[Rfam]
RNA: ffh sRNA
Organism: Pseudogemmobacter humi
RNA sequence: GUGGCCCGGGAUCGCCAUCCGUCAGCGCGUUCGCGCCCACGGGUGCCGCCCGG
Numbered sequence: 001g002u003g004g005c006c007c008g009g010g011a012u013c014g015c016c017a018u019c020c021g022u023c024a025g026c027g028c029g030u031u032c033g034c035g036c037c038c039a040c041g042g043g044u045g046c047c048g049c050c051c052g053g
Stems, first nucleotide, its partner, number of pairs: 016045007025036004